[Rfam]
Rfam assigns this 110-nucleotide sequence from Triticum aestivum to the family "Small nucleolar RNA Z118/Z121/Z120".
RNA sequence: UAGUUGCUGUGAUGCAUCUGCAAGGACGGUGUCCGAGUAAAGGUUGCUCUUGAAAAGGUGCUCCUUCCCUGAUUAUGCAUCCAAAACUAAUCAUAUAUCCUGAGGAAAUG
Numbered sequence: 001u002a003g004u005u006g007c008u009g010u011g012a013u014g015c016a017u018c019u020g021c022a023a024g025g026a027c028g029g030u031g032u033c034c035g036a037g038u039a040a041a042g043g044u045u046g047c048u049c050u051u052g053a054a055a056a057g058g059u060g061c062u063c064c065u066u067c068c069c070u071g072a073u074u075a076u077g078c079a080u081c082c083a084a085a086a087c088u089a090a091u092c093a094u095a096u097a098u099c100c101u102g103a104g105g106a107a108a109u110g
Stems, first nucleotide, its partner, number of pairs: 001110002004107002007104001037068001039066001041065003